[Rfam]
RNA sequence: GCAUAGCGUUGAUGUGAAAGGUUGCGACACACCCGGCCGCUUUGCCACAGGGUGUGGCGGUAAUUUUCACGGAGCAAGUCUUAUUUUUUAAAAUAGACGAAGGA
Numbered sequence: 001g002c003a004u005a006g007c008g009u010u011g012a013u014g015u016g017a018a019a020g021g022u023u024g025c026g027a028c029a030c031a032c033c034c035g036g037c038c039g040c041u042u043u044g045c046c047a048c049a050g051g052g053u054g055u056g057g058c059g060g061u062a063a064u065u066u067u068c069a070c071g072g073a074g075c076a077a078g079u080c081u082u083a084u085u086u087u088u089u090a091a092a093a094u095a096g097a098c099g100a101a102g103g104a
Stems, first nucleotide, its partner, number of pairs: 014070003018067004025059002028056007079103004086097003
RNA: S10-Clostridia ribosomal protein leader
Organism: Pediococcus stilesii